[Rfam]
RNA sequence: AGCGGGUGCAGAGCUUGGCUGAUUGGUGAACGUGCAUGGCUUGUGUUUUUGUUCACAGUGGCUAAGUUCUUCACCCGAA
Numbered sequence: 001a002g003c004g005g006g007u008g009c010a011g012a013g014c015u016u017g018g019c020u021g022a023u024u025g026g027u028g029a030a031c032g033u034g035c036a037u038g039g040c041u042u043g044u045g046u047u048u049u050u051g052u053u054c055a056c057a058g059u060g061g062c063u064a065a066g067u068u069c070u071u072c073a074c075c076c077g078a079a
Stems, first nucleotide, its partner, number of pairs: 011069010026056007
RNA: mir-27 microRNA precursor family
Organism: Danio rerio